RNA sequence: GUGUCCGGUAUAGAAAAACCGGAGGUUCAUACAGGAUGGUCGGGCCGCCAUCU
Number, nucleotide and partner (000 for none) at each position: 001g000002u000003g000004u000005c022006c021007g020008g019009u018010a000011u016012a000013g000014a000015a000016a011017a000018a009019c008020c007021g006022g005023a000024g000025g000026u000027u000028c000029a000030u000031a000032c000033a000034g053035g052036a051037u050038g049039g048040u047041c000042g000043g000044g000045c000046c000047g040048c039049c038050a037051u036052c035053u034
Shown here is a 53-nucleotide RNA sequence, a member of the family "nhaA-I RNA". By type it is a riboswitch. Rfam describes the family as follows. Acidobacteria, Alphaproteobacteria, Betaproteobacteria and Gammaproteobacteria, Verrucomicrobia, cand. division NC10.